Annotation:
TPP riboswitch aptamer (THI element): a 105-nucleotide RNA sequence from Consotaella salsifontis. The organism belongs to Consotaella, within Bacteria. Vitamin B(1) in its active form thiamin pyrophosphate (TPP) is an essential coenzyme that is synthesised by coupling of pyrimidine and thiazole moieties in bacteria. The previously detected thiamin-regulatory element, thi box was extended, resulting in a new, highly conserved RNA secondary structure, the THI element, which is widely distributed in eubacteria and also occurs in some archaea. Analysis of operon structures identified a large number of new candidate thiamin-regulated genes, mostly transporters, in various prokaryotic organisms.
RNA sequence: ACCUGCUCACACGGGGUGCCCAUUGGGGCUGAGAGGCGGCCGCGCCGCCAACCCGCUGAACCUGAUCCGGGUCAUGCCGGCGGAGGGAUGGAGAGUUUCCGCUCG
Numbered sequence: 001a002c003c004u005g006c007u008c009a010c011a012c013g014g015g016g017u018g019c020c021c022a023u024u025g026g027g028g029c030u031g032a033g034a035g036g037c038g039g040c041c042g043c044g045c046c047g048c049c050a051a052c053c054c055g056c057u058g059a060a061c062c063u064g065a066u067c068c069g070g071g072u073c074a075u076g077c078c079g080g081c082g083g084a085g086g087g088a089u090g091g092a093g094a095g096u097u098u099c100c101g102c103u104c105g
Stems, first nucleotide, its partner, number of pairs: 006093003010090002012055004018029004036048005061086003067080004